[Rfam]
RNA sequence: AGGUAAUGCCUCCUGUACCUAUAUCACUGGAGACACUCGGUCAUGCUGUGGGUGCUGAUACCUUAGACGUUAAUCGUCAAGGGUGUGACGUGAGGAAGGGUUAAAUGCCCG
Numbered sequence: 001a002g003g004u005a006a007u008g009c010c011u012c013c014u015g016u017a018c019c020u021a022u023a024u025c026a027c028u029g030g031a032g033a034c035a036c037u038c039g040g041u042c043a044u045g046c047u048g049u050g051g052g053u054g055c056u057g058a059u060a061c062c063u064u065a066g067a068c069g070u071u072a073a074u075c076g077u078c079a080a081g082g083g084u085g086u087g088a089c090g091u092g093a094g095g096a097a098g099g100g101u102u103a104a105a106u107g108c109c110c111g
Base pairs, nucleotide, nucleotide: 001020002019003018004017007035008034010032011031012030013029036094037093038092039091040089041088042087043086044085045084046083047082050063051062052061053060054059066078067077068076069075098110099109100108101107

epsC RNA: a 111-nucleotide RNA from Paenibacillus sp. FSL H7-0357. The family's consensus secondary structure is taken from published work. Taxonomically the source falls in Paenibacillus (Bacteria, Bacillati, Caryophanales, Paenibacillaceae). Rfam 15.1 lists 450 matches to the family in 334 species.